[Rfam]
RNA sequence: CGGCAACAUCAAGAGUCGGGCCAACGUCCGACACCAACCUGCUCCCCGAGCAAGGUGGUGCCUUUCGAAAGAGGGGGAUGUGGCCGGACCGGCAAUCCAACGGGACAUG
Numbered sequence: 001c002g003g004c005a006a007c008a009u010c011a012a013g014a015g016u017c018g019g020g021c022c023a024a025c026g027u028c029c030g031a032c033a034c035c036a037a038c039c040u041g042c043u044c045c046c047c048g049a050g051c052a053a054g055g056u057g058g059u060g061c062c063u064u065u066c067g068a069a070a071g072a073g074g075g076g077g078a079u080g081u082g083g084c085c086g087g088a089c090c091g092g093c094a095a096u097c098c099a100a101c102g103g104g105a106c107a108u109g
Stems, first nucleotide, its partner, number of pairs: 006081005015032001017030005033059003038055003041051003046104002083093004
SAM-I/IV (S-adenosyl methionine) riboswitch aptamer: a 109-nucleotide RNA from Sphingobium yanoikuyae. Lineage of the source: Bacteria > Pseudomonadati > Pseudomonadota > Alphaproteobacteria > Sphingobium yanoikuyae. A search with the family's covariance model found it, with a score of 56 bits.